[Rfam]
RNA: Group II catalytic intron D1-D4-3
Organism: Limnochorda pilosa
RNA sequence: CCCAUCGCGAGGUGGGAUCCGAAGGAAGCCGAAGGCAACGCGCUAGCCCGACGAACAGGAAUCGCAUACGAGGCGGGCACGCUGGGUGGGAAGGCACAACUCUUCAAAGCCCGAUACCUGUGCGGAAAGCGUGCACGCAUAUGCGGCGGGCAUAAGUGCGAAGGUGAGUGCG
Dot-bracket structure: ((((((....)))))).............((...((...(((((.(((((...........((((((.....(((.(((((((((((..((((........))))...))))...............))))))).)))..)))))))))))...)))))....))...))..